[Rfam]
RNA sequence: GUCCUAUACAGAUGUAUUCAACGCUAGUCAGUUGGGCAUCUCCCUUUAGGAUGAAGUUUAUUAGAAGCUCUGGCAACAAUUUUCAUUGUGUGGCUCUACGGUCGAAAUGAGAUGAGUCAGAGUGGAAUAGGUUAACUGUAAGACCUUGAGUUGAAAAACUCUAAAAUUGAGCUAGAGAUGUGGAUUCCUAAUUUUCUCAUUUUCUAGUUACGGUGUG
Dot-bracket structure: ((((((.(.((((((..((((((.....).)))))))))))...).))))))..............((((((((......(((((((....((.(....).))..)))))))...)))))))).....[[[[[.(((((((]]]]].(((((....))))).....)....(((((((((.(((.........))).)).))))))).))))))...
Background: Shown here is a 217-nucleotide RNA, a member of the family "IS605-orfB-I RNA".